[Rfam]
RNA: MIR397 microRNA precursor family
Organism: Hevea brasiliensis
RNA sequence: UGGACAAACUUCAUUGAGUGCAGCUUUGAUGAAUUACCUACAAUUUUUCUGGGGUUUGGAUGGUAUGGGAUUAUUUCACCAGCGCUCCACUCAAUCUUGUUUUUC
Numbered sequence: 001u002g003g004a005c006a007a008a009c010u011u012c013a014u015u016g017a018g019u020g021c022a023g024c025u026u027u028g029a030u031g032a033a034u035u036a037c038c039u040a041c042a043a044u045u046u047u048u049c050u051g052g053g054g055u056u057u058g059g060a061u062g063g064u065a066u067g068g069g070a071u072u073a074u075u076u077c078a079c080c081a082g083c084g085c086u087c088c089a090c091u092c093a094a095u096c097u098u099g100u101u102u103u104u105c
Stems, first nucleotide, its partner, number of pairs: 006102004013095008022086003026082003030078003